Rfam assigns this 104-nucleotide RNA from Candidimonas nitroreducens to the family "Vibrio RNA AS9". Identified by direct cloning an parallel sequencing experiments with 5S/tRNA depletion. On this family, see Liu et al., Nucleic Acids Res 2009: "Experimental discovery of sRNAs in Vibrio cholerae by direct cloning, 5S/tRNA depletion and parallel sequencing". Taxonomically the source falls in Candidimonas (Bacteria, Pseudomonadati, Pseudomonadota, Alcaligenaceae). Rfam classes the family as an antisense RNA. The match comes from Rfam's covariance-model search (61 bits). The family's consensus secondary structure was predicted with RNAfold.
[Rfam]
RNA sequence: CUGGCGGCAGCGCUCUUCGGUCAGCGUCAGGCAGACCAGCCCGCGGGCGUGCGUGACCAUGAAAUUGAUGGCGGCCGGUGUGACGUAUUCGGCGGCCAGCACCA
Numbered sequence: 001c002u003g004g005c006g007g008c009a010g011c012g013c014u015c016u017u018c019g020g021u022c023a024g025c026g027u028c029a030g031g032c033a034g035a036c037c038a039g040c041c042c043g044c045g046g047g048c049g050u051g052c053g054u055g056a057c058c059a060u061g062a063a064a065u066u067g068a069u070g071g072c073g074g075c076c077g078g079u080g081u082g083a084c085g086u087a088u089u090c091g092g093c094g095g096c097c098a099g100c101a102c103c104a
Base pairs, nucleotide, nucleotide: 003058004057007054008053010027011026012025013024014023035050036049040046041045066104067103069101070100071096072095074093075092076091077090078088079087080086